[Rfam]
RNA sequence: GAAUACGGGGAUCGCCCUCCGCCAGCGCGUUGCGCCCGCGGGGGCGUUUGCG
Numbered sequence: 001g002a003a004u005a006c007g008g009g010g011a012u013c014g015c016c017c018u019c020c021g022c023c024a025g026c027g028c029g030u031u032g033c034g035c036c037c038g039c040g041g042g043g044g045c046g047u048u049u050g051c052g
Base pairs, nucleotide, nucleotide: 016044017043018042019041020040021039022038025035026034027033028032